[Rfam]
RNA sequence: GAUGAAGAUAGAGGUAGCAAUGCAUCAGAGUACCGGCCGGAGUCGGCAGGCAGAGAACGUCGGGAAAGGUAACCAUUGCCGAAGAUGAGAAAACGGCAGUUCUCCCAUCUGGGGUAUUCGGAAAUACCGAAUACACUCCUUCCAAGUUGAAGAGGGGUUAUCUUGUAG
Numbered sequence: 001g002a003u004g005a006a007g008a009u010a011g012a013g014g015u016a017g018c019a020a021u022g023c024a025u026c027a028g029a030g031u032a033c034c035g036g037c038c039g040g041a042g043u044c045g046g047c048a049g050g051c052a053g054a055g056a057a058c059g060u061c062g063g064g065a066a067a068g069g070u071a072a073c074c075a076u077u078g079c080c081g082a083a084g085a086u087g088a089g090a091a092a093a094c095g096g097c098a099g100u101u102c103u104c105c106c107a108u109c110u111g112g113g114g115u116a117u118u119c120g121g122a123a124a125u126a127c128c129g130a131a132u133a134c135a136c137u138c139c140u141u142c143c144a145a146g147u148u149g150a151a152g153a154g155g156g157g158u159u160a161u162c163u164u165g166u167a168g
Base pairs, nucleotide, nucleotide: 006163007162008161009160010159011158017079018078019077020076021075022074025071033063034062035061036060038059039058083110084109085108086107087106089104090103092101093100094099111137112136114134115133116132117131118130119129120128121127139152140151141150142149

The family of this 168-nucleotide RNA from Catenisphaera adipataccumulans is "Lysine riboswitch aptamer". Lineage of the source: Bacteria > Bacillati > Erysipelotrichia > Erysipelotrichaceae > Catenisphaera. The family's consensus secondary structure is taken from published work.